[Rfam]
Rfam assigns this 80-nucleotide RNA sequence from Coregonus sp. 'balchen' to the family "Small nucleolar RNA SNORD72". Its family is annotated with RNA processing and nucleolus in the Gene Ontology. For this family Rfam cites "RNomics: an experimental approach that identifies 201 candidates for novel, small, non-messenger RNAs in mouse" (Huttenhofer et al., EMBO J, 2001). About the family: snoRNA HBII-240 belongs to the CD family of snoRNAs. By type it is a C/D-box small nucleolar RNA.
RNA sequence: GUCUUGUCAAUGAUGUUUUCAAUACAAAUGUCUGAACAUAUGAAUUUUCAGUGAUUCUUACUUAUUGACUGAGACAAGAC
Numbered sequence: 001g002u003c004u005u006g007u008c009a010a011u012g013a014u015g016u017u018u019u020c021a022a023u024a025c026a027a028a029u030g031u032c033u034g035a036a037c038a039u040a041u042g043a044a045u046u047u048u049c050a051g052u053g054a055u056u057c058u059u060a061c062u063u064a065u066u067g068a069c070u071g072a073g074a075c076a077a078g079a080c
Stems, first nucleotide, its partner, number of pairs: 002079007